This 72-nucleotide RNA from Polypterus senegalus belongs to the Rfam family "mir-451 microRNA precursor family".
RNA sequence: CAGGGGGCAGCAGGGAAACCGUUACCAUUACUGAGCUUUAGUAAUGGUAAGGGUUACUUUGCUUCCUCCAGU
Numbered sequence: 001c002a003g004g005g006g007g008c009a010g011c012a013g014g015g016a017a018a019c020c021g022u023u024a025c026c027a028u029u030a031c032u033g034a035g036c037u038u039u040a041g042u043a044a045u046g047g048u049a050a051g052g053g054u055u056a057c058u059u060u061g062c063u064u065c066c067u068c069c070a071g072u
Stems, first nucleotide, its partner, number of pairs: 007065001009063001011061003017055004022050012

Lineage of the source: Eukaryota > Eumetazoa > Gnathostomata > Teleostomi > Polypterus.
The family has 22 seed sequences and 658 matches in Rfam 15.1.
The family's consensus secondary structure was predicted with RNAalifold.
Rfam links the family to the GO terms RISC complex and miRNA-mediated post-transcriptional gene silencing.
For this family Rfam cites "Role of MicroRNA miR-27a and miR-451 in the regulation of MDR1/P-glycoprotein expression in human cancer cells" (Zhu et al., Biochem Pharmacol, 2008).